MIR8622 microRNA precursor family: a 211-nucleotide sequence from Ectocarpus siliculosus.
RNA sequence: CCGAAAUCUGCGCCGGAACCAAGCGGCAUCCAAAAUUUGUCACAGCCGUGCUCACCGCCGCUGUCCGUAAACCUCGGAACGGAGGGUUGUCAGCAGUAGCUAGUGGCAUCAGCUACUGCUGUAAACCCGUAGCUGAGGAGAUUGGGGGCAGUGGCGGCGAGCAUGGCUGUCGCAUAUGUUGGAUGCCGCUUGGUUCCGGCGCAGAUUUCGG
Number, nucleotide and partner (000 for none) at each position: 001c211002c210003g209004a208005a207006a206007u205008c204009u203010g202011c201012g200013c199014c198015g197016g196017a195018a194019c193020c192021a191022a190023g189024c188025g187026g186027c185028a184029u183030c182031c181032a180033a179034a000035a177036u176037u000038u174039g173040u172041c000042a000043c169044a168045g167046c166047c165048g164049u163050g162051c161052u160053c159054a000055c157056c156057g155058c154059c153060g152061c151062u000063g149064u148065c147066c146067g000068u144069a143070a142071a000072c140073c000074u138075c137076g000077g000078a134079a000080c132081g000082g000083a000084g128085g127086g126087u000088u000089g000090u000091c121092a120093g119094c118095a117096g116097u115098a114099g113100c112101u111102a000103g000104u000105g000106g000107c000108a000109u000110c000111a101112g100113c099114u098115a097116c096117u095118g094119c093120u092121g091122u000123a000124a000125a000126c086127c085128c084129g000130u000131a000132g080133c000134u078135g000136a000137g075138g074139a000140g072141a000142u070143u069144g068145g000146g066147g065148g064149c063150a000151g061152u060153g059154g058155c057156g056157g055158c000159g053160a052161g051162c050163a049164u048165g047166g046167c045168u044169g043170u000171c000172g040173c039174a038175u000176a036177u035178g000179u033180u032181g031182g030183a029184u028185g027186c026187c025188g024189c023190u022191u021192g020193g019194u018195u017196c016197c015198g014199g013200c012201g011202c010203a009204g008205a007206u006207u005208u004209c003210g002211g001
Taxonomically the source falls in Ectocarpus (Eukaryota, Ochrophyta, Phaeophyceae, Ectocarpaceae). Rfam 15.1 lists 93 matches to the family in 2 species. The family's consensus secondary structure was predicted with RNAalifold.